[Rfam]
RNA: Small nucleolar RNA SNORA23
Organism: Sparus aurata
RNA sequence: GGUGGAUGGUGUGCACAGUAUCAGUCUGUGUUACGUGUUGUUGCCGGACUGUGUUUUGCAGACUGGGCAUCAGCGCUCACUCCACACCUGCAGCCAUAGAACAACUGGAGAUCAUAGUACUGGCCCUUGACGUCUCUAUUGACAUCUCACCAUCGGCCAGCCUCCAAAUUCUCCUACAUUC
Number, nucleotide and partner (000 for none) at each position: 001g000002g000003u000004g000005g000006a000007u000008g000009g000010u000011g000012u000013g091014c090015a089016c000017a000018g000019u000020a000021u000022c000023a000024g000025u000026c000027u000028g000029u000030g080031u079032u000033a000034c000035g077036u075037g074038u073039u072040g071041u000042u000043g068044c067045c065046g064047g063048a000049c000050u060051g059052u058053g000054u000055u000056u000057u000058g052059c051060a050061g000062a000063c047064u046065g045066g000067g044068c043069a000070u000071c040072a039073g038074c037075g036076c000077u035078c000079a031080c030081u000082c000083c000084a000085c000086a000087c000088c000089u015090g014091c013092a000093g000094c000095c000096a000097u000098a000099g000100a000101a000102c000103a000104a000105c000106u000107g174108g173109a172110g171111a170112u000113c000114a000115u000116a000117g000118u000119a000120c160121u159122g158123g157124c156125c155126c000127u000128u000129g146130a145131c000132g143133u142134c141135u000136c000137u000138a000139u000140u000141g134142a133143c132144a000145u130146c129147u000148c000149a000150c000151c000152a000153u000154c000155g125156g124157c123158c122159a121160g120161c000162c000163u000164c000165c000166a000167a000168a000169u000170u111171c110172u109173c108174c107175u000176a000177c000178a000179u000180u000181c000